[Rfam]
RNA: Small nucleolar RNA Z221/R21b
RNA sequence: GAGCAGUGAUGAAGAGAAAGUCAUGCACCACUCUGAUUAUUCAGUGCUGAUAAGACUCUAAACCCAUUUAAUCUGAGCUC
Numbered sequence: 001g002a003g004c005a006g007u008g009a010u011g012a013a014g015a016g017a018a019a020g021u022c023a024u025g026c027a028c029c030a031c032u033c034u035g036a037u038u039a040u041u042c043a044g045u046g047c048u049g050a051u052a053a054g055a056c057u058c059u060a061a062a063c064c065c066a067u068u069u070a071a072u073c074u075g076a077g078c079u080c
Base pairs, nucleotide, nucleotide: 001080002079003078004077